[Rfam]
RNA: Small nucleolar RNA R44/J54/Z268 family
Organism: Papaver nudicaule
RNA sequence: UUUGCAAGUGAUGAUAAAACAAAUAGGGACGUCAGAGUGUUUAUCUUAGGAUAACAAAAUGUUGACAAGUCUGGGGAAUCUAUUGCAUC
Numbered sequence: 001u002u003u004g005c006a007a008g009u010g011a012u013g014a015u016a017a018a019a020c021a022a023a024u025a026g027g028g029a030c031g032u033c034a035g036a037g038u039g040u041u042u043a044u045c046u047u048a049g050g051a052u053a054a055c056a057a058a059a060u061g062u063u064g065a066c067a068a069g070u071c072u073g074g075g076g077a078a079u080c081u082a083u084u085g086c087a088u089c
Stems, first nucleotide, its partner, number of pairs: 003087004